[Rfam]
Nucleotides: 152
Stems, first nucleotide, its partner, number of pairs: 002151004009144002013037006020030002038141011050129002055088002060082002090126004095121001097115004
Number, partner (000 for none) and nucleotide at each position: 001000a002151u003150g004149a005148c006000g007000u008000a009144u010143c011000a012000g013037u014036u015035g016034u017033u018032u019000a020030u021029g022000g023000u024000a025000u026000c027000u028000c029021c030020a031000c032018a033017a034016g035015c036014a037013a038141c039140u040139u041138c042137c043136u044135u045134u046133g047132u048131c049000c050129a051128u052000g053000a054000c055088c056087u057000u058000c059000u060082u061081c062000g063000u064000u065000u066000c067000a068000c069000g070000a071000g072000a073000a074000a075000c076000g077000a078000a079000g080000a081061g082060a083000a084000a085000a086000a087056g088055g089000g090126a091125a092124u093123u094000g095121u096000u097115u098114u099113u100112g101000a102000u103000c104000g105000g106000a107000a108000c109000g110000a111000g112100c113099a114098a115097g116000a117000u118000c119000a120000g121095a122000a123093a124092a125091u126090u127000a128051a129050u130000u131048g132047a133046c134045a135044a136043g137042g138041g139040a140039a141038g142000a143010g144009a145000g146000g147000a148005g149004u150003u151002a152000a
The record is a 152-nucleotide sequence from Enterococcus durans, which matches "Enterococcus-1 RNA" in Rfam. The family's consensus secondary structure is taken from published work. Taxonomically the source falls in Enterococcus durans (Bacteria, Bacillati, Lactobacillales, Enterococcus). By type it is a small RNA.